[Rfam]
RNA sequence: ACCAUCCUUUCCUUGGGGUUGUGCUACUGUCCAAUGAGUGCACAGCAAGAGCAGUCCUACCAACCCUACAUAACACACCUGCCUCAACUAGAGUUUUGCUUCACCUCAGUGCAGUUUUGGAAAAA
Numbered sequence: 001a002c003c004a005u006c007c008u009u010u011c012c013u014u015g016g017g018g019u020u021g022u023g024c025u026a027c028u029g030u031c032c033a034a035u036g037a038g039u040g041c042a043c044a045g046c047a048a049g050a051g052c053a054g055u056c057c058u059a060c061c062a063a064c065c066c067u068a069c070a071u072a073a074c075a076c077a078c079c080u081g082c083c084u085c086a087a088c089u090a091g092a093g094u095u096u097u098g099c100u101u102c103a104c105c106u107c108a109g110u111g112c113a114g115u116u117u118u119g120g121a122a123a124a125a
Stems, first nucleotide, its partner, number of pairs: 006018004021060003026055005032049001038046002081112002084109001089103001091101004